The family of this 121-nucleotide sequence from Ornithinimicrobium ciconiae is "SAM (S-adenosyl methionine) riboswitch aptamer". A search with the family's covariance model found it, with a score of 101 bits. SAM-IV is a mRNA element that regulates gene expression via direct sensing of S-adenosylmethionine (SAM or AdoMet).
[Rfam]
RNA sequence: GGUCAUGAGUCCCAACGUCAAGCCCCGGCUCGUUGGGCGGCAACCCUCCACUCGCGGUGGGGUGCCCCGGGUGAUGACCCGGCGGACGUGGCACCGGAGCUGCGAUCCGCAAGCGCGGGCC
Numbered sequence: 001g002g003u004c005a006u007g008a009g010u011c012c013c014a015a016c017g018u019c020a021a022g023c024c025c026c027g028g029c030u031c032g033u034u035g036g037g038c039g040g041c042a043a044c045c046c047u048c049c050a051c052u053c054g055c056g057g058u059g060g061g062g063u064g065c066c067c068c069g070g071g072u073g074a075u076g077a078c079c080c081g082g083c084g085g086a087c088g089u090g091g092c093a094c095c096g097g098a099g100c101u102g103c104g105a106u107c108c109g110c111a112a113g114c115g116c117g118g119g120c121c
Stems, first nucleotide, its partner, number of pairs: 001079004009038001011037006021030002039066003044062003048057002082110005